A member of the RNA family "ZMP/ZTP riboswitch aptamer (pfl RNA motif)" from Geodermatophilus marinus, 86 nucleotides long. The organism belongs to Geodermatophilus, within Bacteria. A search with the family's covariance model found it, with a score of 47 bits. The family's consensus secondary structure is taken from published work.
RNA sequence: CGGCGGGGCCGUGACUGGCGCAUGGAGGUGGGACCGACCACCGGGGAGCGGCUCGCACCACCCCGCCGGGCGCCUGGGCACCCCUC
Numbered sequence: 001c002g003g004c005g006g007g008g009c010c011g012u013g014a015c016u017g018g019c020g021c022a023u024g025g026a027g028g029u030g031g032g033a034c035c036g037a038c039c040a041c042c043g044g045g046g047a048g049c050g051g052c053u054c055g056c057a058c059c060a061c062c063c064c065g066c067c068g069g070g071c072g073c074c075u076g077g078g079c080a081c082c083c084c085u086c
Base pairs, nucleotide, nucleotide: 006054007053008052009051010050011049012048015045016044017074018073019072020071021070028041029040030039031038065079066078067077
Dot-bracket structure: .....(((((((..(([[[[[......((((......))))..))..)))))))..........(((..]]]]]..))).......